[Rfam]
This 46-nucleotide sequence from Granulicella mallensis belongs to the Rfam family "Acido-Lenti-1 RNA".
RNA sequence: CCUGGGGCUUGCGCCCCAGGCUGGGAUAUACCGCCCCUUCGGGGCU
Numbered sequence: 001c002c003u004g005g006g007g008c009u010u011g012c013g014c015c016c017c018a019g020g021c022u023g024g025g026a027u028a029u030a031c032c033g034c035c036c037c038u039u040c041g042g043g044g045c046u
Base pairs, nucleotide, nucleotide: 001020002019003018004017005016006015007014008013033045034044035043036042037041
Annotation:
It is annotated as a small RNA. Lineage of the source: Bacteria > Terriglobales > Acidobacteriaceae > Granulicella > Granulicella mallensis. The match comes from Rfam's covariance-model search (54 bits).